[Rfam]
RNA sequence: GUGCAAUGAUGUUACUUAUCAACACAUCAUUCUGAAGAGAACUGGUGCGGAAACUUCAUACAACUGAGCACA
Numbered sequence: 001g002u003g004c005a006a007u008g009a010u011g012u013u014a015c016u017u018a019u020c021a022a023c024a025c026a027u028c029a030u031u032c033u034g035a036a037g038a039g040a041a042c043u044g045g046u047g048c049g050g051a052a053a054c055u056u057c058a059u060a061c062a063a064c065u066g067a068g069c070a071c072a
Stems, first nucleotide, its partner, number of pairs: 001071004
Small nucleolar RNA SNORD63: a 72-nucleotide RNA sequence from Pelodiscus sinensis.
Rfam describes the family as follows. snoRNA U63 is found in both humans and mice.
Rfam classes the family as a C/D-box small nucleolar RNA.